[Rfam]
RNA sequence: UAAUGCCUGAGGUAUCUGAUGCUCUGACUUAUAUUAUAGCUGGGUGUCUCGUUUAGAUGGCAGAAAAUGAGAAAUAAACAGGUCUUGCGACACAGGUUGCUUCAACGUUUGUUAGCUUCCUGUUACUUAAUCCCUGCUUACAUCU
Numbered sequence: 001u002a003a004u005g006c007c008u009g010a011g012g013u014a015u016c017u018g019a020u021g022c023u024c025u026g027a028c029u030u031a032u033a034u035u036a037u038a039g040c041u042g043g044g045u046g047u048c049u050c051g052u053u054u055a056g057a058u059g060g061c062a063g064a065a066a067a068u069g070a071g072a073a074a075u076a077a078a079c080a081g082g083u084c085u086u087g088c089g090a091c092a093c094a095g096g097u098u099g100c101u102u103c104a105a106c107g108u109u110u111g112u113u114a115g116c117u118u119c120c121u122g123u124u125a126c127u128u129a130a131u132c133c134c135u136g137c138u139u140a141c142a143u144c145u
Stems, first nucleotide, its partner, number of pairs: 004062004008057001018048007026040001077138001079136003092123005099116003

Rfam assigns this 145-nucleotide sequence from Macleaya cordata to the family "Small nucleolar RNA F1/F2/snoR5a". The source organism's lineage runs through Eukaryota, Viridiplantae, Embryophyta, Tracheophyta and Macleaya. Rfam 15.1 lists 325 matches to the family in 97 species. From the family's description: This family contains F1, F2 and snoR5a sequences, all of which are members of the the H/ACA class of snoRNA that guide the sites of modification of uridines to pseudouridines.